This 137-nucleotide sequence from Shimwellia blattae belongs to the Rfam family "Molybdenum/Tungsten riboswitch aptamer (Moco RNA motif)".

RNA sequence: GGCGAAAACAUACACUCAAGCCCCUGAACCUACGUCUGCCGGAUAGGGUUCCCGGGCCGCGAUGCACUGACAUCGCCAGGGUGCAGAAAGAAAUGCCUGCAUCUCCCGAUUUGGAAAGGUGUUUAUGGUCUCUCAAC
Number, nucleotide and partner (000 for none) at each position: 001g000002g000003c000004g130005a000006a000007a000008a000009c000010a000011u000012a122013c121014a120015c119016u000017c118018a000019a000020g057021c056022c055023c054024c000025u000026g051027a050028a049029c048030c047031u000032a000033c000034g044035u043036c042037u041038g000039c000040c000041g037042g036043a035044u034045a000046g000047g030048g029049u028050u027051c026052c000053c000054g023055g022056g021057c020058c000059g076060c075061g074062a073063u072064g000065c000066a000067c000068u000069g000070a000071c000072a063073u062074c061075g060076c059077c000078a000079g104080g103081g102082u101083g100084c099085a098086g097087a000088a000089a094090g000091a000092a000093a000094u089095g000096c000097c086098u085099g084100c083101a082102u081103c080104u079105c114106c113107c000108g000109a000110u000111u000112u000113g106114g105115a000116a000117a000118g017119g015120u014121g013122u012123u000124u000125a000126u000127g000128g000129u000130c004131u000132c000133u000134c000135a000136a000137c000
The family's consensus secondary structure is taken from published work. Rfam links the family to the GO terms molybdenum ion binding, regulation of gene expression and tungstate binding.